[Rfam]
RNA: Lysine riboswitch aptamer
RNA sequence: AGGUGAGGUAGAGGCGCGGGUCAUCAAGAGUAACAUGCCAGAGGUGUUAAGGGCCGAUGAAGGUGUGUGAAAGGGGUGCCCGCCGAAGCGCGUAAACUUCCUUAAGGUUUACGCAGCUGGGCCUAUGCCGAACAGGUAUAGGACUGUCACUGAAGGCUCCCCAGGCCUUCAGUGGAGAGCUAUCUCGCUA
Numbered sequence: 001a002g003g004u005g006a007g008g009u010a011g012a013g014g015c016g017c018g019g020g021u022c023a024u025c026a027a028g029a030g031u032a033a034c035a036u037g038c039c040a041g042a043g044g045u046g047u048u049a050a051g052g053g054c055c056g057a058u059g060a061a062g063g064u065g066u067g068u069g070a071a072a073g074g075g076g077u078g079c080c081c082g083c084c085g086a087a088g089c090g091c092g093u094a095a096a097c098u099u100c101c102u103u104a105a106g107g108u109u110u111a112c113g114c115a116g117c118u119g120g121g122c123c124u125a126u127g128c129c130g131a132a133c134a135g136g137u138a139u140a141g142g143a144c145u146g147u148c149a150c151u152g153a154a155g156g157c158u159c160c161c162c163a164g165g166c167c168u169u170c171a172g173u174g175g176a177g178a179g180c181u182a183u184c185u186c187g188c189u190a
Stems, first nucleotide, its partner, number of pairs: 006185006016083006024075001033068007087118003090114008119145002122142008147175010